[Rfam]
RNA: Small nucleolar RNA Z247
Organism: Setaria viridis
RNA sequence: AAAGUUGAUGAUGAAGAGCUGGUUUCUUAUCUCCUGGCCGGCCUUGAUGAGGAGUUCAAUCCAGUCGUGACGGCGGUGGGGGCGCGCACCGAGUCUAUCUCGGUGGGUGAAUUGGUCUCCCAGCUGCUGAGCUUUGAGC
Numbered sequence: 001a002a003a004g005u006u007g008a009u010g011a012u013g014a015a016g017a018g019c020u021g022g023u024u025u026c027u028u029a030u031c032u033c034c035u036g037g038c039c040g041g042c043c044u045u046g047a048u049g050a051g052g053a054g055u056u057c058a059a060u061c062c063a064g065u066c067g068u069g070a071c072g073g074c075g076g077u078g079g080g081g082g083c084g085c086g087c088a089c090c091g092a093g094u095c096u097a098u099c100u101c102g103g104u105g106g107g108u109g110a111a112u113u114g115g116u117c118u119c120c121c122a123g124c125u126g127c128u129g130a131g132c133u134u135u136g137a138g139c
Stems, first nucleotide, its partner, number of pairs: 005137004088108003092104001